[Rfam]
The family of this 144-nucleotide RNA from Rattus norvegicus is "Small nucleolar RNA SNORA48".
Rfam classes the family as an H/ACA-box small nucleolar RNA.
On this family, see Ofengand and Bakin, J Mol Biol 1997: "Mapping to nucleotide resolution of pseudouridine residues in large subunit ribosomal RNAs from representative eukaryotes, prokaryotes, archaebacteria, mitochondria and chloroplasts".
Its Rfam clan is "SNORA48 clan".
Rfam links the family to the GO terms nucleolus and RNA processing.
About the family: The snoRNA ACA 48 has been identified to guide pseudouridylation of the residue U3797 in the 28S rRNA subunit.
The family's consensus secondary structure was predicted with RNAalifold.
RNA sequence: UCCUUCUGGCAAUAGGCAAAGGGACACCUUGUUAUUGGUGUUGUUCUUAUAUCAGUCAGAGGCAGAGCAGAUGGUAGUCCUUGGUUCAUCCUAGCUUGAUGCCUGGCUUGGUGGCCAAAGCUGUCUUAUGCCUAGGACUAAUAA
Numbered sequence: 001u002c003c004u005u006c007u008g009g010c011a012a013u014a015g016g017c018a019a020a021g022g023g024a025c026a027c028c029u030u031g032u033u034a035u036u037g038g039u040g041u042u043g044u045u046c047u048u049a050u051a052u053c054a055g056u057c058a059g060a061g062g063c064a065g066a067g068c069a070g071a072u073g074g075u076a077g078u079c080c081u082u083g084g085u086u087c088a089u090c091c092u093a094g095c096u097u098g099a100u101g102c103c104u105g106g107c108u109u110g111g112u113g114g115c116c117a118a119a120g121c122u123g124u125c126u127u128a129u130g131c132c133u134a135g136g137a138c139u140a141a142u143a144a
Stems, first nucleotide, its partner, number of pairs: 001064001003062006013054001015052001019048003023042006083139005098132001100130001104128003109123002112120001